[Rfam]
RNA: Betaproteobacteria toxic small RNA
RNA sequence: UGUCUCCUCCACCCUCCUCCUUAGGUGGAUUAAGCCCGAGCCGAACGUUCGGGCUUUUUUUU
Numbered sequence: 001u002g003u004c005u006c007c008u009c010c011a012c013c014c015u016c017c018u019c020c021u022u023a024g025g026u027g028g029a030u031u032a033a034g035c036c037c038g039a040g041c042c043g044a045a046c047g048u049u050c051g052g053g054c055u056u057u058u059u060u061u062u
Stems, first nucleotide, its partner, number of pairs: 008029006033055008